[Rfam]
RNA sequence: AAGCAGCAGUGAUGAUGAUGACGUAUUGUCACUUUACUGAAUAAAACAUGUGGGCUUUAAGUCACUACCUCAUCUGAGCUGCAA
Numbered sequence: 001a002a003g004c005a006g007c008a009g010u011g012a013u014g015a016u017g018a019u020g021a022c023g024u025a026u027u028g029u030c031a032c033u034u035u036a037c038u039g040a041a042u043a044a045a046a047c048a049u050g051u052g053g054g055c056u057u058u059a060a061g062u063c064a065c066u067a068c069c070u071c072a073u074c075u076g077a078g079c080u081g082c083a084a
Base pairs, nucleotide, nucleotide: 003082004081005080006079007078
Shown here is an 84-nucleotide RNA sequence from Acipenser ruthenus, a member of the family "Small nucleolar RNA SNORD11B". The base pairs follow the family's consensus structure, which was predicted with WAR. Clan: SNORD11 clan. Rfam links the family to the GO terms nucleolus and RNA processing. It is annotated as a C/D-box small nucleolar RNA.